[Rfam]
RNA sequence: CCUGAGCAGGUGCAUGCAGCCUGGCCCUGCCCUCACUGGAAAGCCCCUUCCUCCUGGGUAACAGACAGAAUUCUAUGCUCUGUUCUGGAGG
Number, nucleotide and partner (000 for none) at each position: 001c091002c090003u089004g000005a000006g000007c000008a000009g081010g080011u000012g078013c077014a076015u075016g073017c000018a071019g000020c000021c064022u063023g062024g000025c000026c000027c000028u000029g059030c058031c057032c056033u000034c000035a000036c000037u000038g052039g051040a000041a049042a048043g000044c000045c000046c000047c000048u042049u041050c000051c039052u038053c000054c000055u000056g032057g031058g030059u029060a000061a000062c023063a022064g021065a000066c000067a000068g000069a000070a000071u018072u000073c016074u000075a015076u014077g013078c012079u000080c010081u009082g000083u000084u000085c000086u000087g000088g000089a003090g002091g001
The record is a 91-nucleotide RNA sequence from Saimiri boliviensis, which matches "mir-1324 microRNA precursor family" in Rfam. It scores 78 bits against the family's covariance model. The source organism's lineage runs through Eukaryota, Opisthokonta, Gnathostomata, Saimiriinae and Saimiri boliviensis. The family's consensus secondary structure was predicted with RNAalifold. Its family is annotated with RISC complex and miRNA-mediated post-transcriptional gene silencing in the Gene Ontology.